[Rfam]
RNA sequence: ACUAGAGACAAUCUUGCAUUUGGGGCUCACAAACGAGUAUCUGAUUACUCAAAAUUUAUAGCUCCGGGAAGGUCUGAGAUAAAGUGUGUCCUGAUUUGUCAGGAAACAUCCAAGCAGGAUGCUUCAAUGAUUGAAGGUGAAAGAACCAGAAAUACUGUGAAAGAAAUCUUUUCUUUCACAUUGGAAACUUUUAUUACUAGCCAUUUGAGUUUAAUAUGCAAGCUGUCUAAUCCUCUGACGUUAGACAGAACUCAAUUCAGACUAAUCUGCUUCUAGU
Numbered sequence: 001a002c003u004a005g006a007g008a009c010a011a012u013c014u015u016g017c018a019u020u021u022g023g024g025g026c027u028c029a030c031a032a033a034c035g036a037g038u039a040u041c042u043g044a045u046u047a048c049u050c051a052a053a054a055u056u057u058a059u060a061g062c063u064c065c066g067g068g069a070a071g072g073u074c075u076g077a078g079a080u081a082a083a084g085u086g087u088g089u090c091c092u093g094a095u096u097u098g099u100c101a102g103g104a105a106a107c108a109u110c111c112a113a114g115c116a117g118g119a120u121g122c123u124u125c126a127a128u129g130a131u132u133g134a135a136g137g138u139g140a141a142a143g144a145a146c147c148a149g150a151a152a153u154a155c156u157g158u159g160a161a162a163g164a165a166a167u168c169u170u171u172u173c174u175u176u177c178a179c180a181u182u183g184g185a186a187a188c189u190u191u192u193a194u195u196a197c198u199a200g201c202c203a204u205u206u207g208a209g210u211u212u213a214a215u216a217u218g219c220a221a222g223c224u225g226u227c228u229a230a231u232c233c234u235c236u237g238a239c240g241u242u243a244g245a246c247a248g249a250a251c252u253c254a255a256u257u258c259a260g261a262c263u264a265a266u267c268u269g270c271u272u273c274u275a276g277u
Base pairs, nucleotide, nucleotide: 001277002276003275004274009269010268013222014221015220016219017218018217019216022065023064024063025062026061035050036049037048038047039046074260075259076258077257078256083198084197085196086195107121108120109119110118111117122136123135124134125133126132137194138193139192140191141190142189143188156180157179158178223248224247225246226245227244228243229242230241231240
Nuclear RNase P: a 277-nucleotide RNA from Chironomus riparius. The match comes from Rfam's covariance-model search (136 bits). It is annotated as a ribozyme.